[Rfam]
RNA sequence: GGGGGCAGUGAUGACUCGGAAAUAUCAAGCUCAACAGACCGGAAUGAGUCGUUUCUUCUUUUAAUUGGAGAUUCGUUUCUGUGUCGAUAAUCCCGCUGAACUGAGCCUUC
Numbered sequence: 001g002g003g004g005g006c007a008g009u010g011a012u013g014a015c016u017c018g019g020a021a022a023u024a025u026c027a028a029g030c031u032c033a034a035c036a037g038a039c040c041g042g043a044a045u046g047a048g049u050c051g052u053u054u055c056u057u058c059u060u061u062u063a064a065u066u067g068g069a070g071a072u073u074c075g076u077u078u079c080u081g082u083g084u085c086g087a088u089a090a091u092c093c094c095g096c097u098g099a100a101c102u103g104a105g106c107c108u109u110c
Stems, first nucleotide, its partner, number of pairs: 001110006
Dot-bracket structure: ((((((..................................................................................................))))))
RNA: Small nucleolar RNA Z107/R87